[Rfam]
RNA sequence: GCGAAUGAAAGUAAGAGGAGAGACUGCUUUAGCGGCGCCGAAGGAGCAAACAAUUGUGAAACUCUCAGGCAAAAAGACUCUUGCUAGACGCAUCUCUGGAGAGAGCUUUUUAAAUAGAUGAAAGCCACCAACGAAGAAACUCAGGAUUGAGAAACUUACCGGUUGCAGGACAGAGGA
Number, nucleotide and partner (000 for none) at each position: 001g091002c090003g089004a000005a000006u000007g000008a000009a000010a085011g084012u083013a082014a081015g080016a079017g078018g000019a000020g000021a000022g036023a000024c035025u034026g033027c032028u000029u000030u000031a000032g027033c026034g025035g024036c022037g070038c069039c068040g000041a000042a000043g066044g064045a063046g062047c000048a000049a000050a057051c056052a000053a000054u000055u000056g051057u050058g000059a000060a000061a000062c046063u045064c044065u000066c043067a000068g039069g038070c037071a000072a000073a000074a000075a000076g000077a000078c017079u016080c015081u014082u013083g012084c011085u010086a000087g000088a000089c003090g002091c001092a000093u000094c175095u174096c173097u172098g171099g000100a000101g000102a000103g126104a000105g125106c124107u123108u122109u121110u120111u000112a000113a000114a000115u000116a000117g000118a000119u000120g110121a109122a108123a107124g106125c105126c103127a163128c162129c161130a000131a000132c000133g159134a000135a156136g155137a000138a000139a000140c000141u000142c000143a000144g000145g000146a000147u000148u000149g000150a000151g000152a000153a000154a000155c136156u135157u000158a000159c133160c000161g129162g128163u127164u000165g000166c000167a000168g000169g000170a000171c098172a097173g096174a095175g094176g000177a000
About this RNA: The record is a 177-nucleotide RNA from Fictibacillus arsenicus, which matches "glycine-GGAnGA riboswitch aptamer" in Rfam. glycine-GGAnGA riboswitch is a variant of glycine riboswitch that have in common a U69A change.